The family of this 67-nucleotide RNA sequence from Bombyx mori is "mir-2774 microRNA precursor family". The organism belongs to Bombyx, within Eukaryota. On this family, see Liu et al., BMC Genomics 2010: "MicroRNAs of Bombyx mori identified by Solexa sequencing".

[Rfam]
RNA sequence: ACAAAAUUCGGAUCGUCGGUCUACCGAGCAAUAUCACCCGCUCGGUGGAAGAUUUUCCCUUUGUCAU
Numbered sequence: 001a002c003a004a005a006a007u008u009c010g011g012a013u014c015g016u017c018g019g020u021c022u023a024c025c026g027a028g029c030a031a032u033a034u035c036a037c038c039c040g041c042u043c044g045g046u047g048g049a050a051g052a053u054u055u056u057c058c059c060u061u062u063g064u065c066a067u
Stems, first nucleotide, its partner, number of pairs: 004064001006062001010058003015053003020049010